[Rfam]
RNA sequence: GGUAGUAGCAAAUAUUCAAGUGAGAACCUUGAAGACUGAAGUGGAGAAAGGUUCCAUGGUAACAGCAGUUGGACAUGGGUUAGUCGAUCCUAAGAGAUAGGGAAGUUCCGUUUUAAAGUGCACGAUUUUUCGCGCCGCCUAUCGAAAGGGAAUCCGGUUAAGAUUCCGGAACCAGGAUGUGGAUCUUUAACGGCAACGUAAAUGAACUUGGAGACGCUGGCAGGGGCCCCGGGAAGAGUUUUCUUUUCUCCUUAACCGUCUACCACCCUGAAAUCAUAUUGUAUGGAGCUAGGGUUCAAUGGCGGGUAGAGCUCGGCACCUUUGCCGGGUCCGGUGCGUUCCUGACAGUCCUUGAAAAUCCAAGGGAAUGAAUAAUUUUCACACCUGGUCGUACUCAUAACCGCAGCAGGUCUCCAAGGUGAACAGCCUCUAGUUGA
Number, nucleotide and partner (000 for none) at each position: 001g000002g000003u000004a000005g000006u000007a000008g000009c000010a000011a000012a000013u000014a000015u033016u032017c031018a030019a029020g028021u000022g000023a000024g000025a000026a000027c000028c020029u019030u018031g017032a016033a015034g435035a434036c433037u432038g000039a000040a000041g000042u000043g415044g414045a413046g412047a000048a000049a395050g394051g000052u000053u000054c078055c077056a076057u075058g074059g000060u000061a000062a000063c071064a070065g000066c000067a000068g000069u000070u064071g063072g000073a000074c058075a057076u056077g055078g054079g000080u000081u000082a000083g000084u000085c391086g390087a389088u000089c149090c148091u000092a000093a000094g143095a142096g112097a111098u110099a000100g109101g108102g107103a000104a000105g000106u000107u102108c101109c100110g098111u097112u096113u000114u000115a000116a000117a000118g000119u000120g135121c134122a000123c000124g000125a000126u000127u000128u000129u000130u000131c000132g000133c000134g121135c120136c000137g000138c000139c000140u000141a000142u095143c094144g000145a000146a000147a000148g090149g089150g000151a000152a000153u170154c169155c168156g167157g166158u000159u000160a000161a000162g000163a000164u000165u000166c157167c156168g155169g154170a153171a000172c000173c387174a386175g385176g384177a000178u383179g382180u381181g380182g379183a377184u000185c000186u000187u000188u000189a000190a199191c198192g197193g000194c000195a000196a000197c192198g191199u190200a000201a000202a000203u000204g000205a000206a000207c364208u363209u362210g361211g360212a359213g000214a000215c000216g349217c348218u347219g346220g000221c344222a343223g342224g341225g340226g339227c338228c000229c334230c333231g332232g252233g251234a000235a249236g248237a247238g000239u000240u000241u000242u000243c000244u000245u000246u000247u237248c236249u235250c000251c233252u232253u000254a000255a000256c305257c304258g303259u302260c301261u000262a000263c000264c000265a295266c294267c293268c292269u291270g290271a000272a000273a000274u286275c285276a284277u283278a000279u000280u000281g000282u000283a277284u276285g275286g274287a000288g000289c000290u270291a269292g268293g267294g266295u265296u000297c000298a000299a000300u000301g260302g259303c258304g257305g256306g000307u000308a000309g000310a000311g000312c329313u328314c327315g326316g325317c324318a323319c000320c000321u000322u000323u318324g317325c316326c315327g314328g313329g312330u000331c000332c231333g230334g229335u000336g000337c000338g227339u226340u225341c224342c223343u222344g221345a000346c219347a218348g217349u216350c000351c000352u000353u000354g000355a000356a000357a000358a000359u212360c211361c210362a209363a208364g207365g000366g000367a000368a000369u000370g000371a000372a000373u000374a000375a000376u000377u183378u000379u182380c181381a180382c179383a178384c176385c175386u174387g173388g000389u087390c086391g085392u000393a000394c050395u049396c000397a000398u000399a000400a000401c410402c409403g000404c000405a000406g000407c000408a000409g402410g401411u000412c046413u045414c044415c043416a000417a429418g428419g427420u426421g000422a000423a000424c000425a000426g420427c419428c418429u417430c000431u000432a037433g036434u035435u034436g000437a000